The family of this 73-nucleotide sequence from Cryptotermes secundus is "mir-137 microRNA precursor family". On this family, see Liu et al., BMC Genomics 2010: "MicroRNAs of Bombyx mori identified by Solexa sequencing". The family's consensus secondary structure was predicted with RNAalifold. The family has 62 seed sequences and 1,138 matches in Rfam 15.1. Its family is annotated with RISC complex and miRNA-mediated post-transcriptional gene silencing in the Gene Ontology.

RNA sequence: GUUGGUCACGCGUAUUCUUGGGUACUUAACACACAUGUAGCGAUGUUAUUGCUUGAGAAUACACGUAGCGGAC
Dot-bracket structure: (((.(..(((.((((((((((((...((((((.........).)))))..)))))))))))).)))..).)))
The organism belongs to Cryptotermes, within Eukaryota.